Record summary: A member of the RNA family "ACEA small nucleolar RNA U3" from Effrenium voratum, 163 nucleotides long. Its family is annotated with RNA processing and nucleolus in the Gene Ontology. Rfam describes the family as follows. Small nucleolar RNAs (snoRNAs) are involved in the processing and modification of rRNA in the nucleolus. There are two main classes of snoRNAs: the box C/D class, and the box H/ACA class. U3 snoRNA is a member of the box C/D class. It is annotated as a C/D-box small nucleolar RNA. The literature on the family includes a 1997 paper in Nucleic Acids Res by Zwieb, "The uRNA database".
RNA sequence: UCGACUGUACUUGCACAGGAUCACUUCUACAGUGACUCCUCUGCUCACACUCAGUCCAUCAGCGCGGUUACUUACCUCUGAGGAUGAACAGCACCUUCUACUGUGAAGGAAAUUGCCUAGCAGGCUUGAUGAUAUUCUGCAGUAGAAGUGUAUCUGAAGAGGA
Numbered sequence: 001u002c003g004a005c006u007g008u009a010c011u012u013g014c015a016c017a018g019g020a021u022c023a024c025u026u027c028u029a030c031a032g033u034g035a036c037u038c039c040u041c042u043g044c045u046c047a048c049a050c051u052c053a054g055u056c057c058a059u060c061a062g063c064g065c066g067g068u069u070a071c072u073u074a075c076c077u078c079u080g081a082g083g084a085u086g087a088a089c090a091g092c093a094c095c096u097u098c099u100a101c102u103g104u105g106a107a108g109g110a111a112a113u114u115g116c117c118u119a120g121c122a123g124g125c126u127u128g129a130u131g132a133u134a135u136u137c138u139g140c141a142g143u144a145g146a147a148g149u150g151u152a153u154c155u156g157a158a159g160a161g162g163a
Base pairs, nucleotide, nucleotide: 003039006035008034009033010032011031017028018027019026020025045067046066048064050062051061075162076161077160078159079158094150095148096147097146098145099144100143101142102141103140104139105136106135108133115125116124117123